[Rfam]
RNA sequence: GCCCAGAUGAGCACCGGUGGUUCGGUGUGCGGGCUUCAAACCCGUAGCUGACCGAGAGUCAGACUGGUUCGAUUCCACCUUCUGGGC
Numbered sequence: 001g002c003c004c005a006g007a008u009g010a011g012c013a014c015c016g017g018u019g020g021u022u023c024g025g026u027g028u029g030c031g032g033g034c035u036u037c038a039a040a041c042c043c044g045u046a047g048c049u050g051a052c053c054g055a056g057a058g059u060c061a062g063a064c065u066g067g068u069u070c071g072a073u074u075c076c077a078c079c080u081u082c083u084g085g086g087c
Base pairs, nucleotide, nucleotide: 001087002086003085004084005083006082007081009079012027013026014025015024016023017022028046029045030044031043032042033041048062049061050060051059052058065077066076067075